[Rfam]
RNA sequence: GGUCGGAAAUCGGGAGACAUUGGCGCAAGCCAGGGCCGAAGGAGCAACCGCCCCGGUAAACUCUCAGGCAAGCAGAACCGUUUCCGAAGA
Numbered sequence: 001g002g003u004c005g006g007a008a009a010u011c012g013g014g015a016g017a018c019a020u021u022g023g024c025g026c027a028a029g030c031c032a033g034g035g036c037c038g039a040a041g042g043a044g045c046a047a048c049c050g051c052c053c054c055g056g057u058a059a060a061c062u063c064u065c066a067g068g069c070a071a072g073c074a075g076a077a078c079c080g081u082u083u084c085c086g087a088a089g090a
Stems, first nucleotide, its partner, number of pairs: 006085001008083002011080003020033004035069003038065002042063003048056002
Glycine riboswitch aptamer: a 90-nucleotide RNA sequence from Paracoccus thiocyanatus. Rfam describes the family as follows. This family represents the bacterial glycine riboswitch. Lineage of the source: Bacteria > Pseudomonadati > Alphaproteobacteria > Paracoccaceae > Paracoccus.